[Rfam]
RNA sequence: UGUCGUCUUUGGACGACCACCAAUGCUCAGUGGGUCUGUGAUGAGCGCCUUCGGGUGACCCUGCUGUCGAUAGACAGCCACCAAUGAUCUAGCCAUCUGCGAGGAUCGCCUUCGGGUGAUGGCAAAAGAAAGCUUCCGUAGCCUGAGAGGGAGCACGCCAGGUCUGGUGUGGUACAUC
Numbered sequence: 001u002g003u004c005g006u007c008u009u010u011g012g013a014c015g016a017c018c019a020c021c022a023a024u025g026c027u028c029a030g031u032g033g034g035u036c037u038g039u040g041a042u043g044a045g046c047g048c049c050u051u052c053g054g055g056u057g058a059c060c061c062u063g064c065u066g067u068c069g070a071u072a073g074a075c076a077g078c079c080a081c082c083a084a085u086g087a088u089c090u091a092g093c094c095a096u097c098u099g100c101g102a103g104g105a106u107c108g109c110c111u112u113c114g115g116g117u118g119a120u121g122g123c124a125a126a127a128g129a130a131a132g133c134u135u136c137c138g139u140a141g142c143c144u145g146a147g148a149g150g151g152a153g154c155a156c157g158c159c160a161g162g163u164c165u166g167g168u169g170u171g172g173u174a175c176a177u178c
Stems, first nucleotide, its partner, number of pairs: 002017006025046005032061005047056003086107005092123006108117003132154005138175003142172002157168003